[Rfam]
RNA: SAM riboswitch aptamer (S box leader)
RNA sequence: UUCUUAUCAAGAGAGGUUGAGGGACUGGCCCAAUGACACCUCGGCAACGGACUUAUUGUACCGUGCCAAAUCCAGCAAGCAUCGCUUGAGAGAUAAGAA
Numbered sequence: 001u002u003c004u005u006a007u008c009a010a011g012a013g014a015g016g017u018u019g020a021g022g023g024a025c026u027g028g029c030c031c032a033a034u035g036a037c038a039c040c041u042c043g044g045c046a047a048c049g050g051a052c053u054u055a056u057u058g059u060a061c062c063g064u065g066c067c068a069a070a071u072c073c074a075g076c077a078a079g080c081a082u083c084g085c086u087u088g089a090g091a092g093a094u095a096a097g098a099a
Base pairs, nucleotide, nucleotide: 001099002098003097004096005095006094007093008092013042014041015040016039017038021031022030023029025075026074027073028072043067044066045065046064048063049062051059052058071091076088077087078086079085080084